[Rfam]
RNA: Y RNA
RNA sequence: AGCUGGUCCAAGUGCAGUGAUGUUUCCACUAAUUGGUCACAACCAGUUACAGAUUUCUUUGUUCCUUCUCCCCUCCCAGUGCUUCACUUGACUAGCUUUAA
Numbered sequence: 001a002g003c004u005g006g007u008c009c010a011a012g013u014g015c016a017g018u019g020a021u022g023u024u025u026c027c028a029c030u031a032a033u034u035g036g037u038c039a040c041a042a043c044c045a046g047u048u049a050c051a052g053a054u055u056u057c058u059u060u061g062u063u064c065c066u067u068c069u070c071c072c073c074u075c076c077c078a079g080u081g082c083u084u085c086a087c088u089u090g091a092c093u094a095g096c097u098u099u100a101a
Base pairs, nucleotide, nucleotide: 001097002096003095004094005093006092007091008090010089011088014085016080018078019077022075028062029061031059032058